[Rfam]
RNA sequence: AGCGCAGCAUCCCUUGGGCCAGUGGCAACCAUUUAAUGCCGUGGGGAUGUGGCCCCUGUCCUGUUGCGCGAGAGCC
Numbered sequence: 001a002g003c004g005c006a007g008c009a010u011c012c013c014u015u016g017g018g019c020c021a022g023u024g025g026c027a028a029c030c031a032u033u034u035a036a037u038g039c040c041g042u043g044g045g046g047a048u049g050u051g052g053c054c055c056c057u058g059u060c061c062u063g064u065u066g067c068g069c070g071a072g073a074g075c076c
Stems, first nucleotide, its partner, number of pairs: 002069008016055005
Shown here is a 76-nucleotide RNA from Trypanosoma brucei, a member of the family "Trypanosomatid snoRNA TB11Cs4H3". By type it is an H/ACA-box small nucleolar RNA. Pairs were carried over by alignment from the consensus structure, which was predicted with WAR. It is one of the family's seed sequences. Its family is annotated with nucleolus and RNA processing in the Gene Ontology.